A member of the RNA family "Plastid-clpP 5UTR RNA" from Nyssa sinensis, 71 nucleotides long. From the family's description: Plastid clpP is a non-coding RNA (ncRNA) recognised in plastids. It was found in the prime untranslated region (5UTR) of a protease complex subunit (clpP) in plastids, suggesting a posible cis-regulatory function. It is annotated as a cis-regulatory element. The literature on the family includes a 2023 paper in Plant Commun by Richter et al., "Retrograde signaling in plants: A critical review focusing on the GUN pathway and beyond". The match comes from Rfam's covariance-model search (63 bits). The family's consensus secondary structure was predicted with LocARNA.
RNA sequence: AAUUCUGUUAGUAGGAAAAAAAGAAGAAACAGACCUGUUCCAUACUCAAUAAGUACCAAUAUGCAAUGAGG
Number, nucleotide and partner (000 for none) at each position: 001a000002a000003u022004u021005c000006u019007g000008u017009u016010a000011g000012u000013a000014g000015g000016a009017a008018a000019a006020a000021a004022a003023g000024a000025a000026g000027a000028a000029a000030c000031a000032g000033a000034c000035c000036u000037g000038u000039u000040c000041c000042a000043u000044a000045c070046u069047c068048a000049a000050u000051a000052a000053g062054u061055a060056c000057c000058a000059a000060u055061a054062u053063g000064c000065a000066a000067u000068g047069a046070g045071g000